The record is a 68-nucleotide sequence from Nannospalax galili, which matches "Small nucleolar RNA SNORD42" in Rfam. Gene Ontology terms of the family: RNA processing and nucleolus. The family's RNA type in Rfam is C/D-box small nucleolar RNA. snoRNA U42 is found in intron 3 of the ribosomal protein L23a (RPL23a) gene in humans and is also present in mice. The family's consensus secondary structure was predicted with PFOLD. NCBI's taxonomy places the organism under Eukaryota, Opisthokonta, Dipnotetrapodomorpha, Eutheria, Nannospalax.

RNA sequence: GUGCGUGUGAUGGAAAAAAAAUUUAACUCCUGAGACCUGUGAUGUCUUAAAAGGAACCACUGAUGAGC
Numbered sequence: 001g002u003g004c005g006u007g008u009g010a011u012g013g014a015a016a017a018a019a020a021a022u023u024u025a026a027c028u029c030c031u032g033a034g035a036c037c038u039g040u041g042a043u044g045u046c047u048u049a050a051a052a053g054g055a056a057c058c059a060c061u062g063a064u065g066a067g068c
Stems, first nucleotide, its partner, number of pairs: 001068002004065002